Shown here is a 115-nucleotide RNA sequence from Echinops telfairi, a member of the family "Small nucleolar RNA SNORD89".

RNA sequence: ACUGAGGAAUGAUGACAAUAAAAGGCCGGAUUGCAGUGUCUCCAUAAGCAGUUUGCUCUCUGUGUGGAUGCACGAUGACAAAACCUCCUGAAGCGAACCCUAGUCUGACCUCAGU
Numbered sequence: 001a002c003u004g005a006g007g008a009a010u011g012a013u014g015a016c017a018a019u020a021a022a023a024g025g026c027c028g029g030a031u032u033g034c035a036g037u038g039u040c041u042c043c044a045u046a047a048g049c050a051g052u053u054u055g056c057u058c059u060c061u062g063u064g065u066g067g068a069u070g071c072a073c074g075a076u077g078a079c080a081a082a083a084c085c086u087c088c089u090g091a092a093g094c095g096a097a098c099c100c101u102a103g104u105c106u107g108a109c110c111u112c113a114g115u
Stems, first nucleotide, its partner, number of pairs: 001115007014105003025034002035101002038099001041096002043093001045091001047089002051073002054068001056066001058064001074087002077084001

snoRNA HBII-289 belongs to the family of C/D snoRNAs. It is the human orthologue of the mouse MBII-289 and has no identified RNA target. Its family is annotated with RNA processing and nucleolus in the Gene Ontology. Pairs were carried over by alignment from the consensus structure, which was predicted with RNAalifold.